[Rfam]
RNA sequence: GAAGCUGGCCAGGCAGCCGCCGGGUGCCUUCGGGUGCCGGGAGGAAAGUCCGGGCUCCAUAGAGCGGGAUGCUGGCUAACGGCCAGGCGCUAUAAGCCGCAAGGCAAAGGCGACGGAAAGUGCAACAGAGAACAGACCGCCGAUGGCUUCGGUGCAAACCGGAGAUCAGGCAAGGGUGAAACGGUGGUCGGGCCGCAAGGUCCGAACGGGCCGGCGACAGCCGGUUCGGGGUAAGAGCCCACCGCGGCUGUGGUGACACAGUCGGCACGGCAAACCCCAUUCGGAGCAAGACCAAAUAGGGGAGCAUCAGGCGUGGCUCGCGCUGCUCCCGGGUAGGUUGCUUGAGCGCCGUGGUAACGCGGCGCCUAGAGGAAUGGCUGCCAGGCCGCCGGGGUUCGCUCCGGUGGCCCUACAGAACCCGGCUUAUCGGCCAGCUUCACAU
Numbered sequence: 001g002a003a004g005c006u007g008g009c010c011a012g013g014c015a016g017c018c019g020c021c022g023g024g025u026g027c028c029u030u031c032g033g034g035u036g037c038c039g040g041g042a043g044g045a046a047a048g049u050c051c052g053g054g055c056u057c058c059a060u061a062g063a064g065c066g067g068g069a070u071g072c073u074g075g076c077u078a079a080c081g082g083c084c085a086g087g088c089g090c091u092a093u094a095a096g097c098c099g100c101a102a103g104g105c106a107a108a109g110g111c112g113a114c115g116g117a118a119a120g121u122g123c124a125a126c127a128g129a130g131a132a133c134a135g136a137c138c139g140c141c142g143a144u145g146g147c148u149u150c151g152g153u154g155c156a157a158a159c160c161g162g163a164g165a166u167c168a169g170g171c172a173a174g175g176g177u178g179a180a181a182c183g184g185u186g187g188u189c190g191g192g193c194c195g196c197a198a199g200g201u202c203c204g205a206a207c208g209g210g211c212c213g214g215c216g217a218c219a220g221c222c223g224g225u226u227c228g229g230g231g232u233a234a235g236a237g238c239c240c241a242c243c244g245c246g247g248c249u250g251u252g253g254u255g256a257c258a259c260a261g262u263c264g265g266c267a268c269g270g271c272a273a274a275c276c277c278c279a280u281u282c283g284g285a286g287c288a289a290g291a292c293c294a295a296a297u298a299g300g301g302g303a304g305c306a307u308c309a310g311g312c313g314u315g316g317c318u319c320g321c322g323c324u325g326c327u328c329c330c331g332g333g334u335a336g337g338u339u340g341c342u343u344g345a346g347c348g349c350c351g352u353g354g355u356a357a358c359g360c361g362g363c364g365c366c367u368a369g370a371g372g373a374a375u376g377g378c379u380g381c382c383a384g385g386c387c388g389c390c391g392g393g394g395u396u397c398g399c400u401c402c403g404g405u406g407g408c409c410c411u412a413c414a415g416a417a418c419c420c421g422g423c424u425u426a427u428c429g430g431c432c433a434g435c436u437u438c439a440c441a442u
Stems, first nucleotide, its partner, number of pairs: 001438010011427001012382007020041002023038006046425003050422005055286004062319004067282005072086005087114001088112004115277002120275002122271002137175002139171003144168003148164002183243005244266001245264008290339004300330006310324005346365008
The record is a 442-nucleotide sequence from Azospira sp. I13, which matches "Bacterial RNase P class A" in Rfam. By type it is a ribozyme. Its family is annotated with dimeric ribonuclease P complex, tRNA processing and ribonuclease P activity in the Gene Ontology. Rfam describes the family as follows. Ribonuclease P (RNase P) is a ubiquitous endoribonuclease, found in archaea, bacteria and eukarya as well as chloroplasts and mitochondria. The organism belongs to Azospira, within Bacteria. Clan: RNaseP clan.